[Rfam]
RNA sequence: UGUCUCCUCCAACACCUCCUAAGGUUUGGAUUCAACCCGCUACCGAAUGGUCAGCGGGUUUUUUUUC
Numbered sequence: 001u002g003u004c005u006c007c008u009c010c011a012a013c014a015c016c017u018c019c020u021a022a023g024g025u026u027u028g029g030a031u032u033c034a035a036c037c038c039g040c041u042a043c044c045g046a047a048u049g050g051u052c053a054g055c056g057g058g059u060u061u062u063u064u065u066u067c
Base pairs, nucleotide, nucleotide: 008030009029010028011027012026014025015024016023034060035059036058037057038056039055040054041053
RNA: Betaproteobacteria toxic small RNA